[Rfam]
RNA sequence: ACAACAGCCGGACUGUCGGUCUACUGAGCAAUUUCACCCUCUCGGUGAAGAUUUUCACUCUGUCCU
Numbered sequence: 001a002c003a004a005c006a007g008c009c010g011g012a013c014u015g016u017c018g019g020u021c022u023a024c025u026g027a028g029c030a031a032u033u034u035c036a037c038c039c040u041c042u043c044g045g046u047g048a049a050g051a052u053u054u055u056c057a058c059u060c061u062g063u064c065c066u
Base pairs, nucleotide, nucleotide: 004063005062006061011056012055015052016051017050020048021047023046024045025044026043027042028041
Dot-bracket structure: ...(((....((..(((..((.((((((............)))))))).)))..))....)))...
This 66-nucleotide sequence from Bombyx mori belongs to the Rfam family "mir-2774 microRNA precursor family". The family's consensus secondary structure was predicted with RNAalifold. The source organism's lineage runs through Eukaryota, Opisthokonta, Protostomia, Neoptera and Bombyx. For this family Rfam cites "MicroRNAs of Bombyx mori identified by Solexa sequencing" (Liu et al., BMC Genomics, 2010).